Group II catalytic intron D1-D4-3: a 166-nucleotide RNA from Cerasibacillus quisquiliarum. A search with the family's covariance model found it, with a score of 90 bits. Its family is annotated with Group II intron splicing in the Gene Ontology.
RNA sequence: UACGUGGCGACGCGGAAUCUGAAGGAAACGGGCGCGAAACCUCGAGGAACACGAACUUCAUACAAGGCUAGGUAUCAUUGGAUGAGUUUGCUUUGACAACAAAGUCCUUUCUGCCGAAGGUGAUACAGAGUAAAUGAAGCGGAUAGAUGGAAGGAAAGAUUACCUC
Numbered sequence: 001u002a003c004g005u006g007g008c009g010a011c012g013c014g015g016a017a018u019c020u021g022a023a024g025g026a027a028a029c030g031g032g033c034g035c036g037a038a039a040c041c042u043c044g045a046g047g048a049a050c051a052c053g054a055a056c057u058u059c060a061u062a063c064a065a066g067g068c069u070a071g072g073u074a075u076c077a078u079u080g081g082a083u084g085a086g087u088u089u090g091c092u093u094u095g096a097c098a099a100c101a102a103a104g105u106c107c108u109u110u111c112u113g114c115c116g117a118a119g120g121u122g123a124u125a126c127a128g129a130g131u132a133a134a135u136g137a138a139g140c141g142g143a144u145a146g147a148u149g150g151a152a153g154g155a156a157a158g159a160u161u162a163c164c165u166c
Stems, first nucleotide, its partner, number of pairs: 001016001003014004030164002035158001039148001042142003056139006067131003072126006080107004086100003
Dot-bracket structure: (.((((....)))).).............((...(...(..(((...........((((((.....(((..((((((..((((..(((.........)))...)))).............))))))..)))..))))))))).....).........)....))..